A member of the RNA family "mir-160 microRNA precursor family" from Ricinus communis, 88 nucleotides long. Pairs were carried over by alignment from the consensus structure, which was predicted with PFOLD. The organism belongs to Ricinus, within Eukaryota. Gene Ontology terms of the family: RISC complex and miRNA-mediated post-transcriptional gene silencing. A reference for the family is Rhoades et al. (2002), "Prediction of plant microRNA targets", Cell. Rfam 15.1 lists 1,502 matches to the family in 247 species.

RNA sequence: UUGUGCCUGGUUCCUUGUAUGCCACAAGCACAGUCCAAUCUGUUCACUGGAUUGGCUUUGCCGGUGGCUUGCAUGGAGCCAUGCAUAC
Dot-bracket structure: .(((((.(((((((.((((.((((...((..............................))...)))).)))).))))))).))))).